[Rfam]
RNA sequence: GAUGGAAAUUUCCUAAGGGAUCGCAUGAUCCAAUAGAUGAAACAAAUAAAAAACAGCCAAAAAACCGAUUCAGAGAUAUCAUACAAAUUAGAUCAAUGCGAUCCCUUUGGAAGUCUCCAC
Numbered sequence: 001g002a003u004g005g006a007a008a009u010u011u012c013c014u015a016a017g018g019g020a021u022c023g024c025a026u027g028a029u030c031c032a033a034u035a036g037a038u039g040a041a042a043c044a045a046a047u048a049a050a051a052a053a054c055a056g057c058c059a060a061a062a063a064a065c066c067g068a069u070u071c072a073g074a075g076a077u078a079u080c081a082u083a084c085a086a087a088u089u090a091g092a093u094c095a096a097u098g099c100g101a102u103c104c105c106u107u108u109g110g111a112a113g114u115c116u117c118c119a120c
Base pairs, nucleotide, nucleotide: 003119004118005117006116008114009113010112011111012110013109015107016106017105018104019103020102021101023099024098025097026095027094028093029092030091
About this RNA
Rfam assigns this 120-nucleotide sequence from Ziziphus jujuba to the family "mir-393 microRNA precursor family". NCBI's taxonomy places the organism under Eukaryota, Streptophyta, fabids, Rosales, Ziziphus jujuba. Pairs were carried over by alignment from the consensus structure. The match comes from Rfam's covariance-model search (67 bits). Its family is annotated with RISC complex and miRNA-mediated post-transcriptional gene silencing in the Gene Ontology.